[Rfam]
RNA: FMN riboswitch aptamer (RFN element)
RNA sequence: AAACAUCUUCAGGGCAGGGUGCAAGUCCCUACCGGCGGUAUAGCCCGCGAGCCGAAAGGUUGAUCCAGUUGAAUUCUGGAGCCGACAGUUAAAGUCUGGAUGAAAGAAGAGUUUA
Numbered sequence: 001a002a003a004c005a006u007c008u009u010c011a012g013g014g015c016a017g018g019g020u021g022c023a024a025g026u027c028c029c030u031a032c033c034g035g036c037g038g039u040a041u042a043g044c045c046c047g048c049g050a051g052c053c054g055a056a057a058g059g060u061u062g063a064u065c066c067a068g069u070u071g072a073a074u075u076c077u078g079g080a081g082c083c084g085a086c087a088g089u090u091a092a093a094g095u096c097u098g099g100a101u102g103a104a105a106g107a108a109g110a111g112u113u114u115a
Stems, first nucleotide, its partner, number of pairs: 003113001006110005017029003031095002033084002035048004043082002051060003064080005086098003